[Rfam]
RNA sequence: UUUGUCAACGGUAAGCGGACCGAAGGGAGCAUUAAGGAGUUGACAAACUCAUGACA
Numbered sequence: 001u002u003u004g005u006c007a008a009c010g011g012u013a014a015g016c017g018g019a020c021c022g023a024a025g026g027g028a029g030c031a032u033u034a035a036g037g038a039g040u041u042g043a044c045a046a047a048c049u050c051a052u053g054a055c056a
Base pairs, nucleotide, nucleotide: 001047002046003045004044005043006042007041008040009039
RNA: Bacillus-plasmid RNA
Organism: Bacillus thuringiensis